Annotation: This 82-nucleotide RNA sequence from Sideroxydans sp. CL21 belongs to the Rfam family "c-di-GMP-I riboswitch aptamer".
RNA sequence: AGUUGUUAAGGCUAAACCCGUUGCGAGGCGGGGGCGGAAAGCCACGGAUCUCGACGCAAGUGGAGAUGGCCGGGUUGCACAU
Numbered sequence: 001a002g003u004u005g006u007u008a009a010g011g012c013u014a015a016a017c018c019c020g021u022u023g024c025g026a027g028g029c030g031g032g033g034g035c036g037g038a039a040a041g042c043c044a045c046g047g048a049u050c051u052c053g054a055c056g057c058a059a060g061u062g063g064a065g066a067u068g069g070c071c072g073g074g075u076u077g078c079a080c081a082u
Base pairs, nucleotide, nucleotide: 012037013036017032018031019030020029021028022027040076041075042074043073045072046071047070048067049066050065051064052063054061
The family's consensus secondary structure is taken from published work.